RNA sequence: UGGAGUGAUGAGGCGGUCUAUUGAAGUCUUGUGUUAUGGUUUUCCUAAUGCAAUACUCAACAAACCUUCGGAAACAAUGUGGAUUAGACGCCGGCUUUAGCUGUGCAACUCUUUUUGAGAAGCUGUGCUAUAGCUGAGUUUAUGAUAUAUUGGAUAACUGGCUUGGUGUUCGUCACUAUGUCAUUUUCCGUUGAAGUCUUAUCUCUCUAUCCCGUCUUGAAACACGG
Number, nucleotide and partner (000 for none) at each position: 001u209002g208003g207004a206005g205006u000007g203008a202009u201010g200011a199012g198013g000014c000015g000016g000017u073018c000019u000020a000021u071022u070023g069024a068025a067026g066027u000028c000029u000030u000031g000032u000033g000034u000035u000036a000037u000038g000039g000040u000041u000042u000043u000044c000045c000046u000047a000048a000049u000050g000051c000052a000053a000054u000055a000056c000057u000058c000059a000060a000061c000062a000063a000064a000065c000066c026067u025068u024069c023070g022071g021072a000073a017074a000075c000076a000077a191078u190079g189080u000081g187082g186083a185084u000085u000086a000087g000088a000089c000090g000091c000092c000093g000094g000095c000096u000097u000098u000099a000100g000101c000102u000103g000104u000105g000106c000107a000108a000109c000110u000111c000112u000113u000114u000115u000116u000117g000118a000119g000120a000121a000122g000123c000124u000125g000126u000127g000128c000129u000130a000131u000132a000133g000134c000135u000136g000137a000138g000139u000140u000141u000142a000143u000144g000145a000146u000147a000148u000149a000150u000151u000152g000153g000154a000155u000156a000157a000158c000159u000160g000161g000162c000163u000164u000165g000166g000167u000168g000169u000170u000171c000172g000173u000174c000175a000176c000177u000178a000179u000180g000181u000182c000183a000184u000185u083186u082187u081188c000189c079190g078191u077192u000193g000194a000195a000196g000197u000198c012199u011200u010201a009202u008203c007204u000205c005206u004207c003208u002209a001210u000211c000212c227213c226214g225215u224216c000217u000218u000219g000220a000221a000222a000223c000224a215225c214226g213227g212
The record is a 227-nucleotide part of an RNA from Ascogregarina taiwanensis, which matches "Eukaryotic large subunit ribosomal RNA" in Rfam. The family's consensus secondary structure is taken from published work. Rfam's curators put it in the seed alignment. Taxonomically the source falls in Ascogregarina (Eukaryota, Apicomplexa, Conoidasida, Gregarinasina).